RNA sequence: UGCCUUUAUGUGUUGCCUGUUCAUUCCAUGUGUAAUGAAUAUGGUGUCAACUAAGGCAUACAUUAAAUCUUGUGGUGGUCUUUUAGAGGUGUUCACCAUGGCAUCUCAUUCUAGGCUACAGCAAGCACAUGU
Numbered sequence: 001u002g003c004c005u006u007u008a009u010g011u012g013u014u015g016c017c018u019g020u021u022c023a024u025u026c027c028a029u030g031u032g033u034a035a036u037g038a039a040u041a042u043g044g045u046g047u048c049a050a051c052u053a054a055g056g057c058a059u060a061c062a063u064u065a066a067a068u069c070u071u072g073u074g075g076u077g078g079u080c081u082u083u084u085a086g087a088g089g090u091g092u093u094c095a096c097c098a099u100g101g102c103a104u105c106u107c108a109u110u111c112u113a114g115g116c117u118a119c120a121g122c123a124a125g126c127a128c129a130u131g132u
Base pairs, nucleotide, nucleotide: 002057003056004055005054006053011049012048014046015045016044017043018041019040020039021038022037023036024035025034069125070124071123072122073120075119076118077117078116079115084114086112088110089109091106094101

Rfam assigns this 132-nucleotide sequence from Albula goreensis to the family "Small nucleolar RNA SNORA13". Rfam's curators write: ACA13 is a member of the H/ACA class of snoRNA that guide the sites of modification of uridines to pseudouridines.